[Rfam]
Record summary:
The record is a 126-nucleotide RNA from Oncorhynchus kisutch, which matches "U4atac minor spliceosomal RNA" in Rfam.
RNA sequence: AUCUUCCGUUGGGGUGGCAAAGGACACUCAGUGAAUGUGUAGUGAGAGCAUCCCUGCUAACGCCAUAAUCAACACGGUUGCAUCACCUGAGCUUCUUGCUUGGGCUAUGGUGCAAUUUUUAGAACC
Numbered sequence: 001a002u003c004u005u006c007c008g009u010u011g012g013g014g015u016g017g018c019a020a021a022g023g024a025c026a027c028u029c030a031g032u033g034a035a036u037g038u039g040u041a042g043u044g045a046g047a048g049c050a051u052c053c054c055u056g057c058u059a060a061c062g063c064c065a066u067a068a069u070c071a072a073c074a075c076g077g078u079u080g081c082a083u084c085a086c087c088u089g090a091g092c093u094u095c096u097u098g099c100u101u102g103g104g105c106u107a108u109g110g111u112g113c114a115a116u117u118u119u120u121a122g123a124a125c126c
Stems, first nucleotide, its partner, number of pairs: 001015005017057003023052002027048003035043002080113006086104002089101004

Its family is annotated with U4atac snRNP, pre-mRNA 5'-splice site binding and spliceosomal tri-snRNP complex assembly in the Gene Ontology. Its Rfam clan is "U4 clan". It scores 59 bits against the family's covariance model. From the family's description: U4atac is an essential component of the minor U12-type spliceosome complex which is required for removal of the rarer class of eukaryotic introns (AT-AC, U12-type). Lineage of the source: Eukaryota > Eumetazoa > Actinopteri > Salmoninae > Oncorhynchus.